[Rfam]
RNA sequence: AGCCUCCCCCGACGCGACACAACAUUCUGCUGUAAUGUUGUGCGAAGACCUGCAGUGUCGGUCGGCGGAGGCU
Numbered sequence: 001a002g003c004c005u006c007c008c009c010c011g012a013c014g015c016g017a018c019a020c021a022a023c024a025u026u027c028u029g030c031u032g033u034a035a036u037g038u039u040g041u042g043c044g045a046a047g048a049c050c051u052g053c054a055g056u057g058u059c060g061g062u063c064g065g066c067g068g069a070g071g072c073u
Stems, first nucleotide, its partner, number of pairs: 001073007009065005021039006047059003
Overview: bZIP non canonical Hac1/Xbp1 intron: a 73-nucleotide RNA sequence from Bombardia bombarda. Lineage of the source: Eukaryota > Fungi > Sordariomycetes > Lasiosphaeriaceae > Bombardia. By type it is a small RNA. The literature on the family includes a 2018 paper in mSphere by Iracane et al., "Identification of an Exceptionally Long Intron in the HAC1 Gene of Candida parapsilosis". The base pairs follow the family's consensus structure, which was predicted with RNAfold. The match comes from Rfam's covariance-model search (54 bits). About the family: bZIP intron RNA is a non-canonical intron that was first reported in HAC1 gene in yeast and XBP1 gene in Metazoa.